RNA sequence: UAGUUAUCAAGAAAGGCGGAGGGAAUAGACCCGGUGAAACCUUGGCAACCCUUUUCUUAUAAAGAAGGUGCUACAUUCUAUCCCACUUUGUUGGGGCAGAUAACAA
Numbered sequence: 001u002a003g004u005u006a007u008c009a010a011g012a013a014a015g016g017c018g019g020a021g022g023g024a025a026u027a028g029a030c031c032c033g034g035u036g037a038a039a040c041c042u043u044g045g046c047a048a049c050c051c052u053u054u055u056c057u058u059a060u061a062a063a064g065a066a067g068g069u070g071c072u073a074c075a076u077u078c079u080a081u082c083c084c085a086c087u088u089u090g091u092u093g094g095g096g097c098a099g100a101u102a103a104c105a106a
Base pairs, nucleotide, nucleotide: 001106003104004103005102006101007100008099013043014042015041016040021032022031023030026080027079028078029077044072045071046070047069049068050067051064052063053062054061076098081095082094083093085091086090
Dot-bracket structure: (.((((((....((((....(((..[[[[))).......))))((((.((((((......))))..))))))...(]]]](((.((...)).)))..))))))).)
The record is a 106-nucleotide sequence from Maribacter sp. MMG018, which matches "SAM riboswitch aptamer (S box leader)" in Rfam.
Lineage of the source: Bacteria > Pseudomonadati > Bacteroidota > Flavobacteriales > Maribacter.
The SAM riboswitch is found upstream of a number of genes which code for proteins involved in methionine or cysteine biosynthesis in Gram-positive bacteria.